[Rfam]
RNA sequence: CGAUCCCGCGCGGGAGAGAUCCGGUCCAACCAGGGCCGGGCGCCGAAGGAGCAAACCCUUCCCGGAACCUCUCAGGCACCCAGGACCGCGUGGGCGAG
Numbered sequence: 001c002g003a004u005c006c007c008g009c010g011c012g013g014g015a016g017a018g019a020u021c022c023g024g025u026c027c028a029a030c031c032a033g034g035g036c037c038g039g040g041c042g043c044c045g046a047a048g049g050a051g052c053a054a055a056c057c058c059u060u061c062c063c064g065g066a067a068c069c070u071c072u073c074a075g076g077c078a079c080c081c082a083g084g085a086c087c088g089c090g091u092g093g094g095c096g097a098g
Stems, first nucleotide, its partner, number of pairs: 006093008020040006042077003045073002049071003056064001

Rfam assigns this 98-nucleotide RNA from Pseudonocardia sediminis to the family "Glycine riboswitch aptamer".
The source organism's lineage runs through Bacteria, Bacillati, Actinomycetota, Pseudonocardiaceae and Pseudonocardia.
A search with the family's covariance model found it, with a score of 63 bits.
From the family's description: This family represents the bacterial glycine riboswitch.